Annotation: The record is a 74-nucleotide RNA from Microvirga aerophila, which matches "Makes More Granules Regulator RNA (mmgR)" in Rfam. Rfam links the family to the GO terms DNA-templated transcription, termination, response to nitrogen compound and protein binding. The base pairs follow the family's consensus structure. The match comes from Rfam's covariance-model search (66 bits). NCBI's taxonomy places the organism under Bacteria, Pseudomonadota, Alphaproteobacteria, Hyphomicrobiales, Microvirga. On this family, see Corbino et al., Genome Biol 2005: "Evidence for a second class of S-adenosylmethionine riboswitches and other regulatory RNA motifs in alpha-proteobacteria". From the family's description: SuhB later renamed mmgR (makes more granules regulator) was a putative non-coding RNA found multiple times in the Agrobacterium tumefaciens genome and related alpha-proteobacteria. Other non-coding RNAs uncovered in the same analysis include: speF, ybhL, metA, and serC.Several studies inSinorhizobium meliloti showed that suhB element is indeed a non-coding RNA:firstly it was detected on Northern blot and called Sm8RNA, secondly in an RNAseq study referred to as SmelC689.The mutant phenotype's (strain lacking the small RNA) cytoplasm contains higher content of polyhydroxybutyrate (PBH)storage granules than wild type strain.
RNA sequence: UGCUGCUGCCCUUCUUGGGUGUUUCCUCCCUAAACUUCGGGCCGCUCGCAAGGGCGGCCUCUUUUCUAGGGAGG
Numbered sequence: 001u002g003c004u005g006c007u008g009c010c011c012u013u014c015u016u017g018g019g020u021g022u023u024u025c026c027u028c029c030c031u032a033a034a035c036u037u038c039g040g041g042c043c044g045c046u047c048g049c050a051a052g053g054g055c056g057g058c059c060u061c062u063u064u065u066c067u068a069g070g071g072a073g074g
Base pairs, nucleotide, nucleotide: 008020009019010018011017040059041058042057043056044055045054046053047052